[Rfam]
RNA sequence: ACGUUCAGGUAAUUGCUGCAGCAUUUUGCUGUAGAGGAAAGUCCAUGCUCGCACGCGCUGAGAUGCGCGUAGUGUUUGUGCCUGGCGAAAAAAUAAGCCAGGGCAGCAAGCUUGUGCUUGUUGACGGCCGGGAAAAUGUCUAAGUCUAUUAGGAUAUGGCAUGAAUACCUAUAAAGUGCCACAGUGACGUAGCCUUUUCAGAAAUGAAAAGGGUGGAACGAGGUAAACCCCACGAGCGAGAAACCCAAAUUAUGGUAGGGGCGCUUUCUUCCUUGGAAACGAACGAGGAGAAGGACAGGAGUGUAGUGCUCCUGUAGAUAGAUGAUUACCGCCGAAGUACGAGAUGAAUAGUCGACUGCAGUACUGAGGAACAAAACAUGGCUUACAGGA
Number, nucleotide and partner (000 for none) at each position: 001a000002c000003g000004u390005u389006c388007a000008g330009g329010u328011a327012a326013u325014u324015g000016c034017u033018g032019c031020a030021g029022c000023a000024u000025u000026u000027u000028g000029c021030u020031g019032u018033a017034g016035a000036g000037g000038a000039a384040a383041g382042u000043c381044c380045a379046u378047g377048c240049u239050c238051g237052c236053a070054c069055g068056c067057g066058c065059u000060g000061a000062g000063a000064u000065g058066c057067g056068c055069g054070u053071a000072g000073u000074g000075u000076u235077u234078g233079u232080g231081c102082c101083u100084g099085g098086c097087g000088a000089a000090a000091a000092a000093a000094u000095a000096a000097g086098c085099c084100a083101g082102g081103g125104c123105a122106g121107c120108a119109a118110g117111c116112u000113u000114g000115u000116g111117c110118u109119u108120g107121u106122u105123g104124a000125c103126g230127g229128c000129c000130g169131g168132g000133a000134a000135a000136a000137u161138g160139u159140c158141u000142a000143a000144g155145u154146c153147u000148a000149u000150u000151a000152g000153g146154a145155u144156a000157u000158g140159g139160c138161a137162u000163g000164a000165a000166u000167a000168c131169c130170u000171a000172u000173a000174a000175a000176g228177u227178g224179c223180c222181a000182c000183a000184g000185u000186g000187a000188c000189g000190u000191a000192g000193c212194c211195u210196u209197u208198u207199c206200a205201g000202a000203a000204a000205u200206g199207a198208a197209a196210a195211g194212g193213g000214u000215g000216g000217a000218a000219c000220g000221a000222g180223g179224u178225a000226a000227a177228c176229c127230c126231c080232a079233c078234g077235a076236g052237c051238g050239a049240g048241a000242a000243a000244c260245c259246c258247a000248a000249a000250u000251u000252a000253u000254g000255g000256u000257a000258g246259g245260g244261g000262c000263g000264c294265u293266u292267u291268c290269u289270u288271c000272c000273u000274u000275g000276g000277a000278a000279a000280c000281g000282a000283a000284c000285g000286a000287g000288g270289a269290g268291a267292a266293g265294g264295a315296c314297a313298g312299g311300a310301g309302u308303g307304u000305a000306g000307u303308g302309c301310u300311c299312c298313u297314g296315u295316a000317g000318a000319u000320a000321g000322a000323u000324g014325a013326u012327u011328a010329c009330c008331g000332c369333c368334g000335a000336a365337g364338u363339a362340c361341g000342a000343g000344a000345u000346g000347a000348a000349u000350a000351g000352u000353c000354g000355a000356c000357u000358g000359c000360a000361g340362u339363a338364c337365u336366g000367a000368g333369g332370a000371a000372c000373a000374a000375a000376a000377c047378a046379u045380g044381g043382c041383u040384u039385a000386c000387a000388g006389g005390a004
The family of this 390-nucleotide RNA sequence from Bacillus sp. V59.32b is "Bacterial RNase P class B". It scores 319 bits against the family's covariance model. It is annotated as a ribozyme. The literature on the family includes a 1998 paper in Annu Rev Biochem by Frank and Pace, "Ribonuclease P: unity and diversity in a tRNA processing ribozyme".